[Rfam]
The family of this 71-nucleotide RNA sequence is "freshwater-2 RNA". The base pairs follow the family's consensus structure, which is taken from published work.
RNA sequence: CCGUACAUAGAGUACGGACUUAUGGGGACAACACCCCGUAGACCUAGAACGUCAAAAGGAGAAAACAAAUG
Number, nucleotide and partner (000 for none) at each position: 001c017002c016003g015004u014005a013006c012007a000008u000009a000010g000011a000012g006013u005014a004015c003016g002017g001018a000019c000020u000021u040022a039023u038024g037025g036026g035027g034028a000029c000030a000031a000032c000033a000034c027035c026036c025037c024038g023039u022040a021041g053042a052043c051044c000045u000046a000047g000048a000049a000050c000051g043052u042053c041054a000055a000056a000057a000058g000059g000060a000061g000062a000063a000064a000065a000066c000067a000068a000069a000070u000071g000